RNA sequence: GCACGCGAUGCGGGAGAGCCGGAACCACGCCCGGCACCGAAGGAGCAAGCCUCCCCGCCAAUCUCUCAGGUACGUGUACCGCAUUCGACAG
Number, nucleotide and partner (000 for none) at each position: 001g000002c000003a000004c000005g000006c000007g085008a084009u083010g082011c081012g080013g079014g000015a000016g000017a000018g000019c034020c033021g032022g031023a000024a000025c000026c000027a000028c000029g000030c000031c022032c021033g020034g019035c000036a071037c070038c069039g067040a066041a000042g000043g065044a064045g063046c000047a000048a000049g058050c057051c000052u000053c000054c000055c000056c000057g050058c049059c000060a000061a000062u000063c045064u044065c043066u040067c039068a000069g038070g037071u036072a000073c000074g000075u000076g000077u000078a000079c013080c012081g011082c010083a009084u008085u007086c000087g000088a000089c000090a000091g000
Shown here is a 91-nucleotide RNA from Protaetiibacter intestinalis, a member of the family "Glycine riboswitch aptamer". Its Rfam clan is "Glycine riboswitch clan". The source organism's lineage runs through Bacteria, Bacillati, Actinomycetota, Actinomycetes and Protaetiibacter. A search with the family's covariance model found it, with a score of 62 bits. Gene Ontology term of the family: glycine biosynthetic process. This family represents the bacterial glycine riboswitch.